Record summary:
A member of the RNA family "Plastid-psbA-4 3UTR RNA", 57 nucleotides long. The base pairs follow the family's consensus structure, which was predicted with LocARNA. From the family's description: Plastid psbA-4 is a non-coding RNA (ncRNA) present in plastids. It was identified in inverted repeat sequences in the 3 prime untranslate region (3UTR) of photosystem II quinone-binding protein (psbA).

[Rfam]
RNA sequence: AAAAAAAGGAGCAAUACAUCUUUCUUGUUCUAUCAAGAGAGCGAUAUUGCUCCUUUU
Numbered sequence: 001a002a003a004a005a006a007a008g009g010a011g012c013a014a015u016a017c018a019u020c021u022u023u024c025u026u027g028u029u030c031u032a033u034c035a036a037g038a039g040a041g042c043g044a045u046a047u048u049g050c051u052c053c054u055u056u057u
Stems, first nucleotide, its partner, number of pairs: 005056012019041001022039006